[Rfam]
RNA sequence: ACAUUGAAGAGAAGGAAUGGUAAGAUUGCUUAUAAGCUGGAUCUUGAGGGUGAGUGGUCUCUUCUACGCAUUGGGCUUAUAAGCCAUCUUACUAGUUCUUCUUUUCAAUGU
Numbered sequence: 001a002c003a004u005u006g007a008a009g010a011g012a013a014g015g016a017a018u019g020g021u022a023a024g025a026u027u028g029c030u031u032a033u034a035a036g037c038u039g040g041a042u043c044u045u046g047a048g049g050g051u052g053a054g055u056g057g058u059c060u061c062u063u064c065u066a067c068g069c070a071u072u073g074g075g076c077u078u079a080u081a082a083g084c085c086a087u088c089u090u091a092c093u094a095g096u097u098c099u100u101c102u103u104u105u106c107a108a109u110g111u
Stems, first nucleotide, its partner, number of pairs: 002110002006106011018094009028084009040072003047065004052061003
This 111-nucleotide RNA sequence from Arabidopsis thaliana belongs to the Rfam family "MIR844 microRNA precursor family". Its family is annotated with miRNA-mediated post-transcriptional gene silencing and RISC complex in the Gene Ontology. It is one of the family's seed sequences. The base pairs follow the family's consensus structure, which was predicted with RNAalifold. The organism belongs to Arabidopsis, within Eukaryota.